[Rfam]
RNA sequence: GGCAGUUCUCGGGUGACGCACCCUAGAACCAGAGUGGAGGGAACCCAAUUCCAGGAUGUGUCACCCGAGAACCGCC
Numbered sequence: 001g002g003c004a005g006u007u008c009u010c011g012g013g014u015g016a017c018g019c020a021c022c023c024u025a026g027a028a029c030c031a032g033a034g035u036g037g038a039g040g041g042a043a044c045c046c047a048a049u050u051c052c053a054g055g056a057u058g059u060g061u062c063a064c065c066c067g068a069g070a071a072c073c074g075c076c
Base pairs, nucleotide, nucleotide: 002075003074005072006071007070008069009068010067011066012065013064014063015062016061017060019058020057022055023054026051027050028049
The family of this 76-nucleotide RNA from Myotis myotis is "mir-9223 microRNA precursor family". Lineage of the source: Eukaryota > Opisthokonta > Sarcopterygii > Eutheria > Myotis. The family's consensus secondary structure was predicted with RNAalifold. It scores 53 bits against the family's covariance model. Gene Ontology terms of the family: miRNA-mediated post-transcriptional gene silencing and RISC complex.